[Rfam]
RNA sequence: GCAGCUAUGGCCUUUAAGGCGACAGACUAGAAAUCUGUUGGGCAUUGCCCGCGCAGGUUCAAAUCCUGCUGGCUGCG
Numbered sequence: 001g002c003a004g005c006u007a008u009g010g011c012c013u014u015u016a017a018g019g020c021g022a023c024a025g026a027c028u029a030g031a032a033a034u035c036u037g038u039u040g041g042g043c044a045u046u047g048c049c050c051g052c053g054c055a056g057g058u059u060c061a062a063a064u065c066c067u068g069c070u071g072g073c074u075g076c077g
Stems, first nucleotide, its partner, number of pairs: 001076007010020004022038005053069005
RNA: tRNA
Organism: Panagrolaimus superbus